[Rfam]
RNA sequence: GAGUGGACUAGGUCGGGCAGUUAGGCCCUGCUCGCCACCCCCACUAUGGUCUUCAGGGGGGACCGAACCCCUGGUGCGUCCGGACAGACCCGGACGGGCCUCGGGAGCCGACGUGGAAGCCUCGUCCGUCGGGGAUGGCGGUCGUCGGGCGUCGUCCGCAGGGACGGCGUCCCCGACGUUAGUCGGUGGUAAUGGGUCAGGCACGGAAGUGAGCAGCCCACCGCCGGACAGCGAUCGCUCGCCGGGUCGCGGGGUGGAGGAGGCAACCGGGAUCCCCCGUCCGGGAACGCCGGGCCAACCAGCCCGUCCGCAU
Numbered sequence: 001g002a003g004u005g006g007a008c009u010a011g012g013u014c015g016g017g018c019a020g021u022u023a024g025g026c027c028c029u030g031c032u033c034g035c036c037a038c039c040c041c042c043a044c045u046a047u048g049g050u051c052u053u054c055a056g057g058g059g060g061g062a063c064c065g066a067a068c069c070c071c072u073g074g075u076g077c078g079u080c081c082g083g084a085c086a087g088a089c090c091c092g093g094a095c096g097g098g099c100c101u102c103g104g105g106a107g108c109c110g111a112c113g114u115g116g117a118a119g120c121c122u123c124g125u126c127c128g129u130c131g132g133g134g135a136u137g138g139c140g141g142u143c144g145u146c147g148g149g150c151g152u153c154g155u156c157c158g159c160a161g162g163g164a165c166g167g168c169g170u171c172c173c174c175g176a177c178g179u180u181a182g183u184c185g186g187u188g189g190u191a192a193u194g195g196g197u198c199a200g201g202c203a204c205g206g207a208a209g210u211g212a213g214c215a216g217c218c219c220a221c222c223g224c225c226g227g228a229c230a231g232c233g234a235u236c237g238c239u240c241g242c243c244g245g246g247u248c249g250c251g252g253g254g255u256g257g258a259g260g261a262g263g264c265a266a267c268c269g270g271g272a273u274c275c276c277c278c279g280u281c282c283g284g285g286a287a288c289g290c291c292g293g294g295c296c297a298a299c300c301a302g303c304c305c306g307u308c309c310g311c312a313u
Stems, first nucleotide, its partner, number of pairs: 001313001003311006011064004015033006038060005071302005078295004082290001089285010100271005107264003112259001114257001119255007126245003130241004134236003138232001140229001141180001143178005148171010183227007193220005202211003
RNA: Archaeal signal recognition particle RNA
Organism: Halorubellus sp. JP-L1